[Rfam]
The family of this 90-nucleotide RNA sequence from Nicotiana attenuata is "small nucleolar RNA snoR114". The base pairs follow the family's consensus structure, which was predicted with RNAalifold. Lineage of the source: Eukaryota > Streptophyta > Magnoliopsida > Nicotianoideae > Nicotiana. The family's RNA type in Rfam is C/D-box small nucleolar RNA.
RNA sequence: GAGCUGUGACGAAUACUGCGCCCCCAUGUGGUCAAAAGGGUCUCCGCACUUGUCCGAAUUUCAGGAUGAUACAACAGCGCAUCUGAGCUC
Numbered sequence: 001g002a003g004c005u006g007u008g009a010c011g012a013a014u015a016c017u018g019c020g021c022c023c024c025c026a027u028g029u030g031g032u033c034a035a036a037a038g039g040g041u042c043u044c045c046g047c048a049c050u051u052g053u054c055c056g057a058a059u060u061u062c063a064g065g066a067u068g069a070u071a072c073a074a075c076a077g078c079g080c081a082u083c084u085g086a087g088c089u090c
Stems, first nucleotide, its partner, number of pairs: 001090004